[Rfam]
c-di-GMP-I riboswitch aptamer: a 75-nucleotide sequence from Cellulomonas aerilata. Rfam's curators write: GEMM was predicted in a large-scale screen for bacterial structured RNA regulatory elements. Genes associated with GEMM are involved in a diverse array of functions, including chemotaxis regulation, signal transduction, secretion and chitin. Taxonomically the source falls in Cellulomonas (Bacteria, Actinomycetota, Micrococcales, Cellulomonadaceae). The base pairs follow the family's consensus structure, which is taken from published work.

RNA sequence: UCCACGAAAGGGCAGACCCGUCGCGAGGCGGGGACGCAAAGCCAUGGGACCCACGCGGUUCGCCAGGCCACCGAA
Numbered sequence: 001u002c003c004a005c006g007a008a009a010g011g012g013c014a015g016a017c018c019c020g021u022c023g024c025g026a027g028g029c030g031g032g033g034a035c036g037c038a039a040a041g042c043c044a045u046g047g048g049a050c051c052c053a054c055g056c057g058g059u060u061c062g063c064c065a066g067g068c069c070a071c072c073g074a075a
Stems, first nucleotide, its partner, number of pairs: 012037002017032006041068003045065003048060003
Gene Ontology term of the family: cyclic-di-GMP binding. It scores 54 bits against the family's covariance model.